[Rfam]
RNA sequence: UAGCUUCAGUGAACAUUCAACGCUGUCGGUGAGUUUGGUCCCUUCAAGAGAAACCACCGAUCGUUGACUGUACCUUGAGGUUUA
Numbered sequence: 001u002a003g004c005u006u007c008a009g010u011g012a013a014c015a016u017u018c019a020a021c022g023c024u025g026u027c028g029g030u031g032a033g034u035u036u037g038g039u040c041c042c043u044u045c046a047a048g049a050g051a052a053a054c055c056a057c058c059g060a061u062c063g064u065u066g067a068c069u070g071u072a073c074c075u076u077g078a079g080g081u082u083u084a
Base pairs, nucleotide, nucleotide: 001084002083003082004080005079006078007077008076014070015069017067018066019065020064021063022062025061026060027059028058029057030056031055033054034053035052036051

Notes: The record is an 84-nucleotide RNA from Pseudonaja textilis, which matches "mir-181 microRNA precursor family" in Rfam. Its family is annotated with miRNA-mediated post-transcriptional gene silencing and RISC complex in the Gene Ontology. Pairs were carried over by alignment from the consensus structure, which was predicted with PFOLD. Rfam 15.1 lists 3,490 matches to the family in 650 species. It scores 81 bits against the family's covariance model. For this family Rfam cites "microRNAs: tiny regulators with great potential" (Ambros, Cell, 2001).